mir-3154 microRNA precursor family: an 86-nucleotide RNA from Myotis myotis. The family has 6 seed sequences and 134 matches in Rfam 15.1.

[Rfam]
RNA sequence: AGGCCCCUCCUUCCCAGCCACAGCGCUUGCUCACCCCUGCCACGUCAAAGGAGGCAGAAGGGGAGCCGAGAGCAGAGAGGGGACCU
Numbered sequence: 001a002g003g004c005c006c007c008u009c010c011u012u013c014c015c016a017g018c019c020a021c022a023g024c025g026c027u028u029g030c031u032c033a034c035c036c037c038u039g040c041c042a043c044g045u046c047a048a049a050g051g052a053g054g055c056a057g058a059a060g061g062g063g064a065g066c067c068g069a070g071a072g073c074a075g076a077g078a079g080g081g082g083a084c085c086u
Stems, first nucleotide, its partner, number of pairs: 002085002004082006012076002023073002026070004030065003034062003037057005043051001

Pairs were carried over by alignment from the consensus structure, which was predicted with RNAalifold. The organism belongs to Myotis, within Eukaryota. The match comes from Rfam's covariance-model search (101 bits).